[Rfam]
RNA sequence: CAUCUUGAAAUCCGGUCGCAACUUGCGUAGAUCUGGAUCGUUCCUUCGGGGACUAUGGUGAUAAACGCGCAAGUAAUAAGCGGAUCGGACCCGGGGGCGGUACCCGGCGGCUCCACCAAACAUCCCAUCGUUGGGGAUCAUGGGGCCGAAACAGGAUCGACGGACGUCUAAAGUUGUUGCUUUUACUCGGUGAGGUACCACCGUUAUCGGUCCGGAAAAGUACAAUUGCCAACGACAAUCGUGCUCCGGUCGCCGUCGCAGCCUAAGCUGUGACAAGACCGAAAUCUAAGCCCUUGCGCCUAGCAGCGUAAGGCGGGGUCCGCAGGCACCUGGCAACAGAAGCCUGCAUU
Numbered sequence: 001c002a003u004c005u006u007g008a009a010a011u012c013c014g015g016u017c018g019c020a021a022c023u024u025g026c027g028u029a030g031a032u033c034u035g036g037a038u039c040g041u042u043c044c045u046u047c048g049g050g051g052a053c054u055a056u057g058g059u060g061a062u063a064a065a066c067g068c069g070c071a072a073g074u075a076a077u078a079a080g081c082g083g084a085u086c087g088g089a090c091c092c093g094g095g096g097g098c099g100g101u102a103c104c105c106g107g108c109g110g111c112u113c114c115a116c117c118a119a120a121c122a123u124c125c126c127a128u129c130g131u132u133g134g135g136g137a138u139c140a141u142g143g144g145g146c147c148g149a150a151a152c153a154g155g156a157u158c159g160a161c162g163g164a165c166g167u168c169u170a171a172a173g174u175u176g177u178u179g180c181u182u183u184u185a186c187u188c189g190g191u192g193a194g195g196u197a198c199c200a201c202c203g204u205u206a207u208c209g210g211u212c213c214g215g216a217a218a219a220g221u222a223c224a225a226u227u228g229c230c231a232a233c234g235a236c237a238a239u240c241g242u243g244c245u246c247c248g249g250u251c252g253c254c255g256u257c258g259c260a261g262c263c264u265a266a267g268c269u270g271u272g273a274c275a276a277g278a279c280c281g282a283a284a285u286c287u288a289a290g291c292c293c294u295u296g297c298g299c300c301u302a303g304c305a306g307c308g309u310a311a312g313g314c315g316g317g318g319u320c321c322g323c324a325g326g327c328a329c330c331u332g333g334c335a336a337c338a339g340a341a342g343c344c345u346g347c348a349u350u
Stems, first nucleotide, its partner, number of pairs: 040053005057187005067180002069177004081166002085163003091107005108148007188203004194213002197211003316331004322347006
This 350-nucleotide RNA sequence from Palleronia aestuarii belongs to the Rfam family "Alphaproteobacteria transfer-messenger RNA". About the family: Bacterial tmRNA, also known as 10Sa RNA or SsrA, is named for its dual tRNA and mRNA-like properties. Its role is to liberate the mRNA from a stalled ribosome. Its Rfam clan is "tRNA clan". The literature on the family includes a 1996 paper in RNA by Williams and Bartel, "Phylogenetic analysis of tmRNA secondary structure".